This 73-nucleotide sequence from Alligator mississippiensis belongs to the Rfam family "Mammalian CPEB3 ribozyme". The match comes from Rfam's covariance-model search (45 bits). Rfam links the family to the GO term RNA nuclease activity.
[Rfam]
RNA sequence: UCACAAGAUCGUGGCCAGAGCAGAAACGUUCACAGUGUGGCCCUGUCAGAUUCCAACAAAUCUGAAUUCUCCU
Numbered sequence: 001u002c003a004c005a006a007g008a009u010c011g012u013g014g015c016c017a018g019a020g021c022a023g024a025a026a027c028g029u030u031c032a033c034a035g036u037g038u039g040g041c042c043c044u045g046u047c048a049g050a051u052u053c054c055a056a057c058a059a060a061u062c063u064g065a066a067u068u069c070u071c072c073u
Stems, first nucleotide, its partner, number of pairs: 011043001013042004019073002022070004026038003047064006

Source information
Rfam's curators write: The mammalian CPEB3 ribozyme is a self cleaving RNA located in the second intron of the CPEB3 gene which belongs to a family of genes regulating messenger RNA polyadenylation.